[Rfam]
RNA sequence: UUGCAUGGUCGUGACUGGCGUGCAGAUGGAAACCAUCGGGGAGCGACACCUGUGAACGGCCGCUCGCCUGGGCCAUACAU
Numbered sequence: 001u002u003g004c005a006u007g008g009u010c011g012u013g014a015c016u017g018g019c020g021u022g023c024a025g026a027u028g029g030a031a032a033c034c035a036u037c038g039g040g041g042a043g044c045g046a047c048a049c050c051u052g053u054g055a056a057c058g059g060c061c062g063c064u065c066g067c068c069u070g071g072g073c074c075a076u077a078c079a080u
Stems, first nucleotide, its partner, number of pairs: 008047005015040002017068004026036004058074004

Shown here is an 80-nucleotide RNA sequence from Leucobacter komagatae, a member of the family "ZMP/ZTP riboswitch aptamer (pfl RNA motif)". The match comes from Rfam's covariance-model search (52 bits). Pairs were carried over by alignment from the consensus structure, which is taken from published work.